[Rfam]
RNA: Glycine riboswitch aptamer
Organism: Tessaracoccus sp. OH4464_COT-324
RNA sequence: GACUGUCAAGCGGGAGAAUCGCGUGCGCGCGAUGCCGAAGGAGCAACCGCCCCGGUAAUCUCUCAGGCCCCCGGACCGCUUGACACGC
Numbered sequence: 001g002a003c004u005g006u007c008a009a010g011c012g013g014g015a016g017a018a019u020c021g022c023g024u025g026c027g028c029g030c031g032a033u034g035c036c037g038a039a040g041g042a043g044c045a046a047c048c049g050c051c052c053c054g055g056u057a058a059u060c061u062c063u064c065a066g067g068c069c070c071c072c073g074g075a076c077c078g079c080u081u082g083a084c085a086c087g088c
Stems, first nucleotide, its partner, number of pairs: 006083008019032004034068003037064002041062003047055002